[Rfam]
RNA sequence: GGCUCUGUAUGGUAUCUGCACCCAGCAGCAUUCUCCUGAUGGGCUGUUCAAAAAGCAGCACUACAGCAGGGCAGUGUUUGGCACCUCUGGCUUUUGUUCUGCUGUGCCUGUUGAACAUUGUAUUUUUGCUGAAAGAGUC
Numbered sequence: 001g002g003c004u005c006u007g008u009a010u011g012g013u014a015u016c017u018g019c020a021c022c023c024a025g026c027a028g029c030a031u032u033c034u035c036c037u038g039a040u041g042g043g044c045u046g047u048u049c050a051a052a053a054a055g056c057a058g059c060a061c062u063a064c065a066g067c068a069g070g071g072c073a074g075u076g077u078u079u080g081g082c083a084c085c086u087c088u089g090g091c092u093u094u095u096g097u098u099c100u101g102c103u104g105u106g107c108c109u110g111u112u113g114a115a116c117a118u119u120g121u122a123u124u125u126u127u128g129c130u131g132a133a134a135g136a137g138u139c
Base pairs, nucleotide, nucleotide: 002061005058006057007056015054017052018047019046020045022043023042024040026038027037028036064128065127066126068124069123071121072120073119074118080108081107082106083105084104
Rfam assigns this 139-nucleotide RNA from Scytalopus superciliaris to the family "Small nucleolar RNA SNORA8". The family's consensus secondary structure was predicted with RNAfold. A search with the family's covariance model found it, with a score of 60 bits. Rfam links the family to the GO terms nucleolus and RNA processing. Clan: SNORA8 clan. ACA8 is a member of the H/ACA class of snoRNA that guide the sites of modification of uridines to pseudouridines.